A member of the RNA family "Potassium channel RNA editing signal" from Xiphophorus maculatus, 114 nucleotides long. Rfam describes the family as follows. This family represents a group of sequences related to the human potassium channel Kv1.1 hairpin element which directs the efficient modification of an adenosine to inosine by an adenosine deaminase acting on RNA (ADAR). NCBI's taxonomy places the organism under Eukaryota, Actinopterygii, Neoteleostei, Poeciliidae, Xiphophorus.
RNA sequence: GUAGGUUAUGGAGACAUGUGUCCUAUCACACUUGGGGGGAAAGUGGUGGGCACACUGUGUGCAAUAGCUGGUGUGUUGACAAUUGCUUUGCCUGUUCCUGUCAUUGUCUCCAAC
Numbered sequence: 001g002u003a004g005g006u007u008a009u010g011g012a013g014a015c016a017u018g019u020g021u022c023c024u025a026u027c028a029c030a031c032u033u034g035g036g037g038g039g040a041a042a043g044u045g046g047u048g049g050g051c052a053c054a055c056u057g058u059g060u061g062c063a064a065u066a067g068c069u070g071g072u073g074u075g076u077u078g079a080c081a082a083u084u085g086c087u088u089u090g091c092c093u094g095u096u097c098c099u100g101u102c103a104u105u106g107u108c109u110c111c112a113a114c
Base pairs, nucleotide, nucleotide: 001114002113004111005110008107009106010105011104013102014101015100016099018097020095021094037077038076040074050062051061
It scores 107 bits against the family's covariance model.